[Rfam]
RNA sequence: GCCUUAUACAGAUGUAGCCACGCAAGGCAGUGGCGCAUCUCCCUUUAAGGUAGUGUUCUCCUUAGAAGCGUAAGUGAUAAGUCUGGUUGUGUGGCUCUUUAGUUGAAACCAGGUGAGCUUAUGUGGAGUAGGUUAGCCGUAAGACCUUGGGUUGAAAAACCCUAAAAUUAACCUGGGAAUAGCGAGUAUCGUUUCGCGAUUUUCGUUAGUCCCAGUUACGGUUGA
Numbered sequence: 001g002c003c004u005u006a007u008a009c010a011g012a013u014g015u016a017g018c019c020a021c022g023c024a025a026g027g028c029a030g031u032g033g034c035g036c037a038u039c040u041c042c043c044u045u046u047a048a049g050g051u052a053g054u055g056u057u058c059u060c061c062u063u064a065g066a067a068g069c070g071u072a073a074g075u076g077a078u079a080a081g082u083c084u085g086g087u088u089g090u091g092u093g094g095c096u097c098u099u100u101a102g103u104u105g106a107a108a109c110c111a112g113g114u115g116a117g118c119u120u121a122u123g124u125g126g127a128g129u130a131g132g133u134u135a136g137c138c139g140u141a142a143g144a145c146c147u148u149g150g151g152u153u154g155a156a157a158a159a160c161c162c163u164a165a166a167a168u169u170a171a172c173c174u175g176g177g178a179a180u181a182g183c184g185a186g187u188a189u190c191g192u193u194u195c196g197c198g199a200u201u202u203u204c205g206u207u208a209g210u211c212c213c214a215g216u217u218a219c220g221g222u223u224g225a
Stems, first nucleotide, its partner, number of pairs: 001051006008044001010040006017034005022028001068124008082113007093104002096101001130147005136222006142168001149162005173215006180208007
RNA: IS605-orfB-I RNA